[Rfam]
RNA sequence: CCGUGCUACACGGGGCGUUAGCGGUGCCUUGUCACCCGCAAUCCGCUGCAGCGGGGUGGAUGCCCGAAUUGAGGGCCUGACUUGUGGGGUCCGGCUUCUGCAAGUGACGUUGAAGAUUGGGUCCUGCGCAACGGAAACCUAUGAACCCCGCCAGGUCCGGGAGGAAGCAACGGUAAGUAGGCCCUUUCGGGUGCCGCAGGGGAGCCUGGUCUGAGUUAACUACAGGGGUAACGCCCGGAAGCCAGUGUUCGAAGUCGGGUGCACGG
Number, nucleotide and partner (000 for none) at each position: 001c266002c265003g264004u263005g262006c261007u000008a000009c058010a057011c056012g030013g029014g028015g027016c026017g025018u024019u023020a000021g000022c000023g019024g018025u017026g016027c015028c014029u013030u012031g000032u000033c000034a000035c055036c054037c053038g052039c051040a000041a000042u000043c000044c000045g000046c000047u000048g000049c000050a000051g039052c038053g037054g036055g035056g011057u010058g009059g000060a000061u000062g000063c000064c259065c258066g000067a000068a255069u254070u253071g000072a000073g250074g249075g248076c247077c000078u000079g243080a000081c241082u240083u239084g000085u237086g236087g235088g234089g000090u000091c000092c233093g232094g000095c000096u227097u226098c225099u224100g223101c000102a000103a000104g220105u219106g217107a216108c215109g000110u000111u000112g000113a000114a212115g211116a210117u209118u208119g207120g206121g205122u204123c200124c199125u198126g197127c196128g195129c191130a000131a000132c189133g188134g187135a186136a185137a000138c181139c180140u179141a178142u177143g000144a000145a000146c000147c000148c173149c172150g171151c000152c000153a000154g000155g000156u165157c164158c163159g000160g000161g000162a000163g158164g157165a156166a000167g000168c000169a000170a000171c150172g149173g148174u000175a000176a000177g142178u141179a140180g139181g138182c000183c000184c000185u136186u135187u134188c133189g132190g000191g129192u000193g000194c000195c128196g127197c126198a125199g124200g123201g000202g000203a000204g122205c121206c120207u119208g118209g117210u116211c115212u114213g000214a000215g108216u107217u106218a000219a105220c104221u000222a000223c100224a099225g098226g097227g096228g000229u000230a000231a000232c093233g092234c088235c087236c086237g085238g000239a083240a082241g081242c000243c079244a000245g000246u000247g076248u075249u074250c073251g000252a000253a070254g069255u068256c000257g000258g065259g064260u000261g006262c005263a004264c003265g002266g001
RNA: Bacterial large signal recognition particle RNA
Organism: Heliomicrobium modesticaldum